Shown here is an 84-nucleotide RNA sequence from Corymbia citriodora, a member of the family "Small nucleolar RNA snoR27". The family's RNA type in Rfam is C/D-box small nucleolar RNA. Gene Ontology terms of the family: nucleolus and RNA processing.
RNA sequence: GUUGGAUCGAUGGUGUCAUUAGUUACUGCUUUAUCUAUUUGCAAGCCUCUAUGGAGGAAGUGGAUUUAUAUGCUCGGAUCCUAU
Numbered sequence: 001g002u003u004g005g006a007u008c009g010a011u012g013g014u015g016u017c018a019u020u021a022g023u024u025a026c027u028g029c030u031u032u033a034u035c036u037a038u039u040u041g042c043a044a045g046c047c048u049c050u051a052u053g054g055a056g057g058a059a060g061u062g063g064a065u066u067u068a069u070a071u072g073c074u075c076g077g078a079u080c081c082u083a084u
Stems, first nucleotide, its partner, number of pairs: 001084002004081004